[Rfam]
RNA: Glycine riboswitch aptamer
Organism: Ensifer sp. M14
RNA sequence: GCGAUCUUGUUGGGAGAAACCGGUUCACUCCGGUGCCGAAGGAGCAACCGCCCCGGAAACUCUCAGGCCAAAGGACCAGCAAGGUGCC
Numbered sequence: 001g002c003g004a005u006c007u008u009g010u011u012g013g014g015a016g017a018a019a020c021c022g023g024u025u026c027a028c029u030c031c032g033g034u035g036c037c038g039a040a041g042g043a044g045c046a047a048c049c050g051c052c053c054c055g056g057a058a059a060c061u062c063u064c065a066g067g068c069c070a071a072a073g074g075a076c077c078a079g080c081a082a083g084g085u086g087c088c
Stems, first nucleotide, its partner, number of pairs: 006083008020033004035068003038064002042062003048056002